[Rfam]
RNA sequence: UCAACGUCGCGACUGGCGCAGCCGAACCGGCGGAUCGACCCUGGAGACAGGGCGCAUCCAGCGGAUCGCAUGGUGGACCACCACCGGGGAGCGACACGUUUUCAGACUUCGGGUCGUUCGCCUGGGCCCCGGUC
Numbered sequence: 001u002c003a004a005c006g007u008c009g010c011g012a013c014u015g016g017c018g019c020a021g022c023c024g025a026a027c028c029g030g031c032g033g034a035u036c037g038a039c040c041c042u043g044g045a046g047a048c049a050g051g052g053c054g055c056a057u058c059c060a061g062c063g064g065a066u067c068g069c070a071u072g073g074u075g076g077a078c079c080a081c082c083a084c085c086g087g088g089g090a091g092c093g094a095c096a097c098g099u100u101u102u103c104a105g106a107c108u109u110c111g112g113g114u115c116g117u118u119c120g121c122c123u124g125g126g127c128c129c130c131g132g133u134c
Base pairs, nucleotide, nucleotide: 003100004099005098006095007094008093009092010091013088014087015122016121017120018119073084074083075082076081111129112128113127114126115125
Dot-bracket structure: ..((((((((..(([[[[......................................................((((....))))..))..)))))..)))..........(((((...]]]]..))))).....